[Rfam]
The record is a 69-nucleotide RNA sequence from Kurthia sibirica, which matches "Bacillus-plasmid RNA" in Rfam. Pairs were carried over by alignment from the consensus structure, which is taken from published work. Rfam 15.1 lists 155 matches to the family in 128 species. NCBI's taxonomy places the organism under Bacteria, Bacillati, Bacilli, Caryophanales, Kurthia.

RNA sequence: UUAGUCAACGGUAAAUGGUUGACUGGAGCGUUAGCGGAGGGAAUUUAAGGAGUUGACUAAUUUAAUCAA
Numbered sequence: 001u002u003a004g005u006c007a008a009c010g011g012u013a014a015a016u017g018g019u020u021g022a023c024u025g026g027a028g029c030g031u032u033a034g035c036g037g038a039g040g041g042a043a044u045u046u047a048a049g050g051a052g053u054u055g056a057c058u059a060a061u062u063u064a065a066u067c068a069a
Stems, first nucleotide, its partner, number of pairs: 001060009